[Rfam]
RNA sequence: UUCUGUCGCCAGGGGAGUCCCGAAGGGACUGAGAAAGCCACCGUGCUGACCCUGGAACCUGAUCCGGUUGAUACCGGCGGAGGAAGAGCGACCAUGACCUACU
Numbered sequence: 001u002u003c004u005g006u007c008g009c010c011a012g013g014g015g016a017g018u019c020c021c022g023a024a025g026g027g028a029c030u031g032a033g034a035a036a037g038c039c040a041c042c043g044u045g046c047u048g049a050c051c052c053u054g055g056a057a058c059c060u061g062a063u064c065c066g067g068u069u070g071a072u073a074c075c076g077g078c079g080g081a082g083g084a085a086g087a088g089c090g091a092c093c094a095u096g097a098c099c100u101a102c103u
Stems, first nucleotide, its partner, number of pairs: 006091004011053004017029005036047003058083003064077004
This 103-nucleotide RNA from Halomonas huangheensis belongs to the Rfam family "TPP riboswitch aptamer (THI element)". Rfam describes the family as follows. Vitamin B(1) in its active form thiamin pyrophosphate (TPP) is an essential coenzyme that is synthesised by coupling of pyrimidine and thiazole moieties in bacteria. The literature on the family includes a 2002 paper in Nature by Winkler et al., "Thiamine derivatives bind messenger RNAs directly to regulate bacterial gene expression".